[Rfam]
RNA sequence: AUCGCGCCUGGUCGGAACAUAACGACGGCGGGCCGGUGGGGAAUCAGGGGGCUACCGUGGGAUAGCGAUGAGACAGCCCCUCCGAUGGCACCAAGCGUCGGAUCGCGGAAAGGCUUGGAAGG
Dot-bracket structure: .(((((((((..............[[[[)))))..)))).........(((((.]]]]......{{{{......))))).((((((....[[[[[[))))))}}}}......]]]]]]....
RNA: Betaproteobacteria-1 RNA